Description: The family of this 371-nucleotide RNA from Agrobacterium bohemicum is "Alphaproteobacteria transfer-messenger RNA". A search with the family's covariance model found it, with a score of 301 bits.
Nucleotides: 371
Base pairs, nucleotide, nucleotide: 041056042055043054044053045052046051061205062204063203064202065201071198073196074195075194076193077192086184087183088182090181091180092179096112097111098110099109100108113166114165115164116163117162118161119160206221207220208219209218211232212231213230216228217227337352338351339350340349343368344367345366346365347364348363
Number, partner (000 for none) and nucleotide at each position: 001000c002000c003000c004000c005000u006000u007000u008000u009000c010000u011000c012000u013000g014000g015000c016000g017000g018000a019000u020000u021000a022000a023000a024000c025000g026000c027000c028000u029000a030000u031000a032000u033000g034000a035000c036000c037000c038000u039000u040000g041056c042055c043054g044053g045052a046051u047000g048000c049000a050000a051046a052045u053044c054043c055042g056041g057000a058000u059000a060000u061205g062204g063203c064202g065201a066000u067000a068000a069000a070000c071198g072000g073196u074195c075194g076193a077192u078000g079000g080000a081000a082000u083000a084000a085000g086184c087183c088182u089000a090181u091180u092179g093000g094000a095000c096112c097111c098110g099109g100108g101000g102000g103000c104000g105000g106000u107000a108100c109099c110098c111097g112096g113166c114165g115164c116163c117162u118161c119160c120000a121000c122000c123000a124000a125000a126000a127000a128000c129000c130000g131000g132000c133000g134000g135000a136000c137000c138000u139000u140000u141000g142000a143000a144000a145000a146000g147000g148000c149000c150000g151000g152000c153000u154000u155000u156000u157000g158000a159000u160119g161118g162117g163116g164115g165114c166113g167000a168000a169000a170000u171000a172000g173000g174000a175000u176000c177000g178000a179092c180091a181090a182088g183087g184086g185000u186000g187000u188000a189000a190000a191000g192077a193076u194075c195074g196073a197000a198071c199000u200000u201065u202064u203063g204062c205061u206221c207220g208219g209218c210000a211232u212231g213230a214000u215000a216228c217227c218209g219208c220207c221206g222000u223000u224000a225000u226000c227217g228216g229000g230213u231212c232211a233000c234000a235000a236000g237000u238000g239000u240000a241000g242000u243000u244000g245000c246000a247000a248000a249000u250000g251000a252000c253000a254000a255000c256000a257000a258000c259000g260000c261000u262000a263000a264000g265000g266000a267000a268000u269000a270000c271000g272000c273000u274000c275000u276000c277000g278000c279000u280000g281000c282000c283000u284000a285000a286000u287000g288000g289000c290000g291000g292000u293000g294000u295000g296000g297000g298000a299000a300000u301000u302000c303000c304000g305000a306000c307000u308000u309000a310000a311000g312000c313000c314000c315000u316000u317000a318000c319000g320000g321000u322000u323000a324000g325000c326000c327000c328000c329000g330000u331000a332000a333000g334000g335000c336000g337352g338351g339350g340349u341000u342000c343368g344367g345366a346365g347364g348363u349340a350339c351338c352337u353000g354000g355000c356000a357000a358000c359000a360000g361000a362000a363348a364347c365346c366345u367344c368343c369000a370000c371000c